[Rfam]
RNA sequence: UAAGAAAAAGGGCAAACUUGUUGAAAAGCAAGGACGCAAAACCACAGAUCUAAGGUACAUACACUAUGAUGGCUGGGUUACCGAA
Numbered sequence: 001u002a003a004g005a006a007a008a009a010g011g012g013c014a015a016a017c018u019u020g021u022u023g024a025a026a027a028g029c030a031a032g033g034a035c036g037c038a039a040a041a042c043c044a045c046a047g048a049u050c051u052a053a054g055g056u057a058c059a060u061a062c063a064c065u066a067u068g069a070u071g072g073c074u075g076g077g078u079u080a081c082c083g084a085a
Base pairs, nucleotide, nucleotide: 012037013036017032018031019030020029021028022027040079041078042077043076045075046074047073048070049069050068055064056063
Dot-bracket structure: ...........((...((((((....))))))...))..((((.((((((....((......))...)))..)))))))......